Shown here is a 73-nucleotide RNA from Chelonoidis abingdonii, a member of the family "Mammalian CPEB3 ribozyme".
NCBI's taxonomy places the organism under Eukaryota, Metazoa, Eumetazoa, Chordata, Chelonoidis nigra species complex.
Its family is annotated with RNA nuclease activity in the Gene Ontology.
The base pairs follow the family's consensus structure, which is taken from published work.
A search with the family's covariance model found it, with a score of 36 bits.
The family has 14 seed sequences and 5,706 matches in Rfam 15.1.
RNA sequence: CCCCGGCUUCAGGGCCAUAACAGGAACAUUCAUGUCAUGACCUGUCAGAUUCUCUGGAUCUGUGAAUCCUGCU
Number, nucleotide and partner (000 for none) at each position: 001c000002c000003c000004c000005g000006g000007c000008u000009u000010c000011a000012g000013g042014g041015c000016c039017a000018u000019a073020a000021c071022a070023g069024g068025a067026a038027c000028a000029u000030u000031c000032a000033u000034g000035u000036c000037a000038u026039g016040a000041c014042c013043u000044g000045u000046c062047a061048g060049a059050u058051u057052c056053u000054c000055u000056g052057g051058a050059u049060c048061u047062g046063u000064g000065a000066a000067u025068c024069c023070u022071g021072c000073u019